[Rfam]
RNA sequence: GGCCCCGUAGUGUAGUGGUUAACAUGCCUGCCUGUCACGCAGGAGAUCGUCGGUUCAAGUCCGAUCGGGGUCG
Numbered sequence: 001g002g003c004c005c006c007g008u009a010g011u012g013u014a015g016u017g018g019u020u021a022a023c024a025u026g027c028c029u030g031c032c033u034g035u036c037a038c039g040c041a042g043g044a045g046a047u048c049g050u051c052g053g054u055u056c057a058a059g060u061c062c063g064a065u066c067g068g069g070g071u072c073g
Base pairs, nucleotide, nucleotide: 001072002071003070004069005068006067007066010025011024012023013022027043028042029041030040031039049065050064051063052062053061